Background
mir-148/mir-152 microRNA precursor family: a 74-nucleotide sequence from Lepisosteus oculatus. Its family is annotated with RISC complex and miRNA-mediated post-transcriptional gene silencing in the Gene Ontology. The source organism's lineage runs through Eukaryota, Opisthokonta, Neopterygii, Lepisosteidae and Lepisosteus. On this family, see Chen et al., Genes Dev 2005: "The developmental miRNA profiles of zebrafish as determined by small RNA cloning". The base pairs follow the family's consensus structure, which was predicted with RNAalifold.
RNA sequence: CUGAGCUGAAGUUCUGUGAUACACUUAGACUCUGAGUGUGGGGAAGUCAGUGCAUAACAGAACUUUGGCUCGGG
Numbered sequence: 001c002u003g004a005g006c007u008g009a010a011g012u013u014c015u016g017u018g019a020u021a022c023a024c025u026u027a028g029a030c031u032c033u034g035a036g037u038g039u040g041g042g043g044a045a046g047u048c049a050g051u052g053c054a055u056a057a058c059a060g061a062a063c064u065u066u067g068g069c070u071c072g073g074g
Stems, first nucleotide, its partner, number of pairs: 004070013022052004028048004